[Rfam]
RNA sequence: UCGACUGUACUCGAACAGGAUCACUUAUGUAGUGAUUUCCUUUCGUUCACAAGAGUACUCUUGACAAAACCCUAAACCGUGAUGAGGAGUUGUAUACCUUUCCACCCUAAUGGAGGUUUAGUCAAUACAAUAAUGUAUUCGACUUCGAUGAUCCAUUUACUCUUUUAAGAGUUAUUGGGUGUGGGUAUUGCUGAGCGGUU
Numbered sequence: 001u002c003g004a005c006u007g008u009a010c011u012c013g014a015a016c017a018g019g020a021u022c023a024c025u026u027a028u029g030u031a032g033u034g035a036u037u038u039c040c041u042u043u044c045g046u047u048c049a050c051a052a053g054a055g056u057a058c059u060c061u062u063g064a065c066a067a068a069a070c071c072c073u074a075a076a077c078c079g080u081g082a083u084g085a086g087g088a089g090u091u092g093u094a095u096a097c098c099u100u101u102c103c104a105c106c107c108u109a110a111u112g113g114a115g116g117u118u119u120a121g122u123c124a125a126u127a128c129a130a131u132a133a134u135g136u137a138u139u140c141g142a143c144u145u146c147g148a149u150g151a152u153c154c155a156u157u158u159a160c161u162c163u164u165u166u167a168a169g170a171g172u173u174a175u176u177g178g179g180u181g182u183g184g185g186u187a188u189u190g191c192u193g194a195g196c197g198g199u200u
Base pairs, nucleotide, nucleotide: 003039006035008034009033010032011031017028019026020025043067045065046064047063049061051059076199077198078197079196080195095187096186097185098184099183103181104180105179106178107177111155112154113153114152121143122142123141126137159172160171161170162169
Dot-bracket structure: ..(..(.((((.....(.((....)).)..)))))...)...(.(((.(.(.......).).))).)........(((((..............(((((...(((((...((((......(((..(..........)...)))........))))...((((......))))....))))).))))).......))))).
A member of the RNA family "ACEA small nucleolar RNA U3" from Perkinsus chesapeaki, 200 nucleotides long. By type it is a C/D-box small nucleolar RNA. The family is grouped with related families in Rfam's "U3 clan". About the family: Small nucleolar RNAs (snoRNAs) are involved in the processing and modification of rRNA in the nucleolus. There are two main classes of snoRNAs: the box C/D class, and the box H/ACA class. U3 snoRNA is a member of the box C/D class. Indeed, the box C/D element is a subset of the six short sequence elements found in all U3 snoRNAs, namely boxes A, A', B, C, C', and D. The U3 snoRNA secondary structure is characterised by a small 5' domain (with boxes A and A'), and a larger 3' domain (with boxes B, C, C', and D), the two domains being linked by a single-stranded hinge. Boxes B and C form the B/C motif, which appears to be exclusive to U3 snoRNAs, and boxes C' and D form the C'/D motif. The latter is functionally similar to the C/D motifs found in other snoRNAs. The 5' domain and the hinge region act as a pre-rRNA-binding domain. The 3' domain has conserved protein-binding sites. Both the box B/C and box C'/D motifs are sufficient for nuclear retention of U3 snoRNA. The box C'/D motif is also necessary for nucleolar localisation, stability and hyper-methylation of U3 snoRNA. Both box B/C and C'/D motifs are involved in specific protein interactions and are necessary for the rRNA processing functions of U3 snoRNA. For this family Rfam cites "The uRNA database" (Zwieb, Nucleic Acids Res, 1997).